The record is a 168-nucleotide RNA sequence from Desmophyllum pertusum, which matches "MIR807 microRNA precursor family" in Rfam. The source organism's lineage runs through Eukaryota, Opisthokonta, Eumetazoa, Anthozoa and Desmophyllum. Rfam links the family to the GO terms miRNA-mediated post-transcriptional gene silencing and RISC complex. The family's consensus secondary structure was predicted with WAR. The family has 30 seed sequences and 1,514 matches in Rfam 15.1.
[Rfam]
RNA sequence: UAGUCCGUCGUCUCGGUAAAGCCCGAUGUCGAUAUCAGGUAUUUGUUUCAGCUGUGAGAGGAGAUAACAACCGACUAAUUCACAUGUGAAUUAGUCGGUUGUUAUCUCCUCUCACAGCUGAAACAAAUACCUGAUAUCGACAUCGGGCUUUACCGAGACGACGGACUA
Dot-bracket structure: (((((((.(((((((.(((.((((((((((((.(((((.((((((((..((.((((....(((...(((((((((((......((....)))))))))))))...)))....)))).))..)))))))).))))).)))))))))))).))).))))))).)))))))